This 74-nucleotide RNA from Nitrosopumilus maritimus belongs to the Rfam family "tRNA". The family's consensus secondary structure is taken from published work. The source organism's lineage runs through Archaea, Nitrososphaeria, Nitrosopumilaceae, Nitrosopumilus and Nitrosopumilus maritimus.
[Rfam]
RNA sequence: GGGUCUAUGGCGCAGCCAGGUAGCGCACAGGACUCUUAAUCCUGCUGUCGUGGGUUCGAAUCCCUCUAGACCCG
Number, nucleotide and partner (000 for none) at each position: 001g073002g072003g071004u070005c069006u068007a067008u000009g000010g026011c025012g024013c023014a000015g000016c000017c000018a000019g000020g000021u000022a000023g013024c012025g011026c010027a000028c044029a043030g042031g041032a040033c000034u000035c000036u000037u000038a000039a000040u032041c031042c030043u029044g028045c000046u000047g000048u000049c000050g066051u000052g064053g063054g062055u000056u000057c000058g000059a000060a000061u000062c054063c053064c052065u000066c050067u007068a006069g005070a004071c003072c002073c001074g000